[Rfam]
Source information
The record is a 57-nucleotide sequence from Pelotomaculum propionicicum, which matches "Fluoride riboswitch aptamer (crcB RNA motif)" in Rfam. The match comes from Rfam's covariance-model search (34 bits). The base pairs follow the family's consensus structure, which is taken from published work.
RNA sequence: AAGCAACAGGGCGAUGGGGCUCGCCAUAUGCCUAGGGCUAAUAGCUCCUACCAGUAG
Numbered sequence: 001a002a003g004c005a006a007c008a009g010g011g012c013g014a015u016g017g018g019g020c021u022c023g024c025c026a027u028a029u030g031c032c033u034a035g036g037g038c039u040a041a042u043a044g045c046u047c048c049u050a051c052c053a054g055u056a057g
Base pairs, nucleotide, nucleotide: 010025011024012023013022016048017047018046019045020044021043030038031037032036
Background: Taxonomically the source falls in Pelotomaculum (Bacteria, Bacillati, Clostridia, Eubacteriales).